[Rfam]
RNA sequence: GUCGGCUAUGGUGACAUGGUUCCAGUCACCAUAGGUGGCAAGAUCGUCGGCUCCCUAUGCGCCAUUGCAGGUGUGCUGACAAUUGCGCUUCCGGUACCUGUCAUCGUGUCUAAC
Numbered sequence: 001g002u003c004g005g006c007u008a009u010g011g012u013g014a015c016a017u018g019g020u021u022c023c024a025g026u027c028a029c030c031a032u033a034g035g036u037g038g039c040a041a042g043a044u045c046g047u048c049g050g051c052u053c054c055c056u057a058u059g060c061g062c063c064a065u066u067g068c069a070g071g072u073g074u075g076c077u078g079a080c081a082a083u084u085g086c087g088c089u090u091c092c093g094g095u096a097c098c099u100g101u102c103a104u105c106g107u108g109u110c111u112a113a114c
Base pairs, nucleotide, nucleotide: 001114002113004111005110007108008107009106010105011104013102014101015100016099018097021094037077038076039075040074049063050062051061
Potassium channel RNA editing signal: a 114-nucleotide sequence from Clupea harengus.
Gene Ontology term of the family: adenosine to inosine editing.
Taxonomically the source falls in Clupea (Eukaryota, Actinopteri, Clupeocephala, Clupeoidei).
By type it is a cis-regulatory element.
It scores 108 bits against the family's covariance model.